Notes
Rfam assigns this 82-nucleotide RNA sequence from Anaerotruncus sp. G3(2012) to the family "S10-Clostridia ribosomal protein leader". The source organism's lineage runs through Bacteria, Bacillota, Eubacteriales, Oscillospiraceae and Anaerotruncus. Pairs were carried over by alignment from the consensus structure, which is taken from published work. The family's RNA type in Rfam is cis-regulatory leader. It scores 44 bits against the family's covariance model.
RNA sequence: GAUAUGCGAUGAUGCGGGAGGUGGCCGCCCGAUGAGGCGGGAAAUUUCCGCGGAGUAUGUCCGAUUUUAAACCGGGCGACUU
Numbered sequence: 001g002a003u004a005u006g007c008g009a010u011g012a013u014g015c016g017g018g019a020g021g022u023g024g025c026c027g028c029c030c031g032a033u034g035a036g037g038c039g040g041g042a043a044a045u046u047u048c049c050g051c052g053g054a055g056u057a058u059g060u061c062c063g064a065u066u067u068u069a070a071a072c073c074g075g076g077c078g079a080c081u082u
Base pairs, nucleotide, nucleotide: 014051015050016049018048019047020046021045025040026039027038028037029036059080060079061078065076066075067074